Rfam assigns this 86-nucleotide RNA from Drosophila grimshawi to the family "mir-1002 microRNA precursor family".

RNA sequence: UGAAAAUUUAACACUUAAGUAGUUGAUACAAGGGCGAGUUUCAUAAAGUAUCGCAUUGUGUGACCUACUUGAAUGAGAGAUUUUUA
Number, nucleotide and partner (000 for none) at each position: 001u000002g000003a084004a083005a082006a081007u080008u079009u078010a000011a000012c075013a074014c000015u072016u071017a070018a069019g068020u067021a066022g065023u000024u000025g000026a061027u060028a059029c058030a057031a056032g000033g000034g054035c053036g052037a051038g000039u000040u000041u000042c000043a000044u000045a000046a000047a000048g000049u000050a000051u037052c036053g035054c034055a000056u031057u030058g029059u028060g027061u026062g000063a000064c000065c022066u021067a020068c019069u018070u017071g016072a015073a000074u013075g012076a000077g000078a009079g008080a007081u006082u005083u004084u003085u000086a000
It scores 90 bits against the family's covariance model. Rfam links the family to the GO terms RISC complex and miRNA-mediated post-transcriptional gene silencing. The source organism's lineage runs through Eukaryota, Protostomia, Pancrustacea, Eumetabola and Hawaiian Drosophila.